[Rfam]
RNA sequence: UUAAUAAAUACACUUCAGCAAUACCGAACUGAGCCAGACUCAGCCGUAAACAAAUAAAUAAAGACGGGUGUCACAAUGAUGAAUAAUAUAUCCGGAGUCAAAUACUGGUCGUGGAUCGCCGCGUUCUCUCUGUCGAUUCUCUUCUGGUACCAGCUUAUCUGGCUCACCCUACACUGAAAAAUAAAGCCUCGCUCAAGCGGGGCUUUUUCUUUUU
Numbered sequence: 001u002u003a004a005u006a007a008a009u010a011c012a013c014u015u016c017a018g019c020a021a022u023a024c025c026g027a028a029c030u031g032a033g034c035c036a037g038a039c040u041c042a043g044c045c046g047u048a049a050a051c052a053a054a055u056a057a058a059u060a061a062a063g064a065c066g067g068g069u070g071u072c073a074c075a076a077u078g079a080u081g082a083a084u085a086a087u088a089u090a091u092c093c094g095g096a097g098u099c100a101a102a103u104a105c106u107g108g109u110c111g112u113g114g115a116u117c118g119c120c121g122c123g124u125u126c127u128c129u130c131u132g133u134c135g136a137u138u139c140u141c142u143u144c145u146g147g148u149a150c151c152a153g154c155u156u157a158u159c160u161g162g163c164u165c166a167c168c169c170u171a172c173a174c175u176g177a178a179a180a181a182u183a184a185a186g187c188c189u190c191g192c193u194c195a196a197g198c199g200g201g202g203c204u205u206u207u208u209c210u211u212u213u214u
Base pairs, nucleotide, nucleotide: 010071011070012069013068014067029043030042031041032040033039110147113139115137116136117135118134120132121131152164154162155161185204186203187202188201189200190199191198192197
Record summary
The record is a 214-nucleotide RNA from Corythaeola cristata, which matches "Enterobacterial sRNA STnc180" in Rfam. It is annotated as a small RNA. The organism belongs to Corythaeola, within Eukaryota. It scores 128 bits against the family's covariance model.